RNA: Bacterial RNase P class A
RNA sequence: UCAGACGGUUGGAUGGCUGCGGGCCGCGCUUGGGAAACCAUGCGGCCUGAGGAAAGUCCGGGCUCCACGAAAACACGGUGCCGGAUAACCUCCGGCGGGGGAAACCCUAGGGAAAGUGCCACAGAAAGCAAACCGCCGGGCAAUUCCGGGCGUCUUCGGGCGUUUGGAAAACGUCCGGUAAGGGUGAAAGGGUGCGGUAAGAGCGCACCGCCGCCCCGGCGACGGGGCGGGCACGGUAAACCCCACCGGGAGCAAGACCGAGUAGGGACGGCCGUUCCAAUCCGCCUCGUGCGGUGAGGGACAGGCGGGUUUUCGCGCUGUCGUCCGGGUGGGUUGCGUGAGGCGCGUGGCGACACGGGCCCCAGAUGAAUAGCCAUCUAUCGUUCCGCGCGGGGAAAUCCGCAAAGAACGGGGACAGAACCCGGCUUACAGACCGUCUGACCCA
Numbered sequence: 001u002c003a004g005a006c007g008g009u010u011g012g013a014u015g016g017c018u019g020c021g022g023g024c025c026g027c028g029c030u031u032g033g034g035a036a037a038c039c040a041u042g043c044g045g046c047c048u049g050a051g052g053a054a055a056g057u058c059c060g061g062g063c064u065c066c067a068c069g070a071a072a073a074c075a076c077g078g079u080g081c082c083g084g085a086u087a088a089c090c091u092c093c094g095g096c097g098g099g100g101g102a103a104a105c106c107c108u109a110g111g112g113a114a115a116g117u118g119c120c121a122c123a124g125a126a127a128g129c130a131a132a133c134c135g136c137c138g139g140g141c142a143a144u145u146c147c148g149g150g151c152g153u154c155u156u157c158g159g160g161c162g163u164u165u166g167g168a169a170a171a172c173g174u175c176c177g178g179u180a181a182g183g184g185u186g187a188a189a190g191g192g193u194g195c196g197g198u199a200a201g202a203g204c205g206c207a208c209c210g211c212c213g214c215c216c217c218g219g220c221g222a223c224g225g226g227g228c229g230g231g232c233a234c235g236g237u238a239a240a241c242c243c244c245a246c247c248g249g250g251a252g253c254a255a256g257a258c259c260g261a262g263u264a265g266g267g268a269c270g271g272c273c274g275u276u277c278c279a280a281u282c283c284g285c286c287u288c289g290u291g292c293g294g295u296g297a298g299g300g301a302c303a304g305g306c307g308g309g310u311u312u313u314c315g316c317g318c319u320g321u322c323g324u325c326c327g328g329g330u331g332g333g334u335u336g337c338g339u340g341a342g343g344c345g346c347g348u349g350g351c352g353a354c355a356c357g358g359g360c361c362c363c364a365g366a367u368g369a370a371u372a373g374c375c376a377u378c379u380a381u382c383g384u385u386c387c388g389c390g391c392g393g394g395g396a397a398a399u400c401c402g403c404a405a406a407g408a409a410c411g412g413g414g415a416c417a418g419a420a421c422c423c424g425g426c427u428u429a430c431a432g433a434c435c436g437u438c439u440g441a442c443c444c445a
Stems, first nucleotide, its partner, number of pairs: 001441010011430001012378007020049009054428003058425005063252004071313003076248005081095005096110001097108004111243002116241002118237003133183002135179007191209006210232001211230008256335004266326006304319004342361003346357004